[Rfam]
The family of this 78-nucleotide RNA from Spodoptera exigua is "mir-2756 microRNA precursor family".
RNA sequence: UUUGUAGCAUACCCUGUAGCUGCUAAGGGGCGCAGUUGUAGUACCUCCCCUUUGCUGCUACAUUGUAUGUUAUGCACC
Number, nucleotide and partner (000 for none) at each position: 001u076002u000003u074004g073005u072006a071007g070008c069009a068010u067011a066012c065013c000014c000015u062016g061017u060018a059019g058020c057021u000022g055023c054024u000025a000026a051027g050028g049029g048030g047031c000032g045033c000034a000035g042036u000037u000038g000039u000040a000041g000042u035043a000044c000045c032046u000047c030048c029049c028050c027051u026052u000053u000054g023055c022056u000057g020058c019059u018060a017061c016062a015063u000064u000065g012066u011067a010068u009069g008070u007071u006072a005073u004074g003075c000076a001077c000078c000